[Rfam]
RNA sequence: CCAACUUCUUCUGAACUCUCUCCCUCAACCGCUACUCUAGAGCUUGGCAAUCCUUGUCGAUUGUUUCUGUGUAGCGGUUGAGGUGAGGGGUUCAGAACAUGUUGG
Numbered sequence: 001c002c003a004a005c006u007u008c009u010u011c012u013g014a015a016c017u018c019u020c021u022c023c024c025u026c027a028a029c030c031g032c033u034a035c036u037c038u039a040g041a042g043c044u045u046g047g048c049a050a051u052c053c054u055u056g057u058c059g060a061u062u063g064u065u066u067c068u069g070u071g072u073a074g075c076g077g078u079u080g081a082g083g084u085g086a087g088g089g090g091u092u093c094a095g096a097a098c099a100u101g102u103u104g105g
Base pairs, nucleotide, nucleotide: 001105002104003103004102005101009097010096011095012094013093014092015091016090018089019088020087021086022085023083024082025081026080028078029077030076031075032074033073034072035071037069040066041065042064043063

The record is a 105-nucleotide sequence from Populus trichocarpa, which matches "MIR1446 microRNA precursor family" in Rfam. A reference for the family is Lu et al. (2008), "Stress-responsive microRNAs in Populus", Plant J. Its family is annotated with miRNA-mediated post-transcriptional gene silencing and RISC complex in the Gene Ontology. The family's consensus secondary structure was predicted with RNAalifold.